[Rfam]
RNA sequence: GGGUGUCGCAGCAUGGGGCUGAAGGGCAGGAGUAGCGAAGGUCGGGCCGCCUCG
Numbered sequence: 001g002g003g004u005g006u007c008g009c010a011g012c013a014u015g016g017g018g019c020u021g022a023a024g025g026g027c028a029g030g031a032g033u034a035g036c037g038a039a040g041g042u043c044g045g046g047c048c049g050c051c052u053c054g
Stems, first nucleotide, its partner, number of pairs: 005027003009021002036054003040051003

The family of this 54-nucleotide sequence from Rhodoferax sp. TH121 is "nhaA-I RNA". The source organism's lineage runs through Bacteria, Pseudomonadati, Pseudomonadota, Comamonadaceae and Rhodoferax. From the family's description: Acidobacteria, Alphaproteobacteria, Betaproteobacteria and Gammaproteobacteria, Verrucomicrobia, cand. division NC10. Pairs were carried over by alignment from the consensus structure, which is taken from published work. It is annotated as a riboswitch.